A member of the RNA family "SAM riboswitch aptamer (S box leader)" from Sporolactobacillus inulinus, 102 nucleotides long. It scores 81 bits against the family's covariance model. Pairs were carried over by alignment from the consensus structure, which is taken from published work.
RNA sequence: AUCUUAUCAAGAGCGGCGGAGGGACUGGCCCUGAGAAGCCCGACAACCAGCACAUCAGUGUAUGGUGUUAAUUCCAGCAGAUUAAUUUCUGGCAGAUAAGAC
Numbered sequence: 001a002u003c004u005u006a007u008c009a010a011g012a013g014c015g016g017c018g019g020a021g022g023g024a025c026u027g028g029c030c031c032u033g034a035g036a037a038g039c040c041c042g043a044c045a046a047c048c049a050g051c052a053c054a055u056c057a058g059u060g061u062a063u064g065g066u067g068u069u070a071a072u073u074c075c076a077g078c079a080g081a082u083u084a085a086u087u088u089c090u091g092g093c094a095g096a097u098a099a100g101a102c
Stems, first nucleotide, its partner, number of pairs: 002101007013041001015040003021031003025077004042069004047065002050061004073094001078091004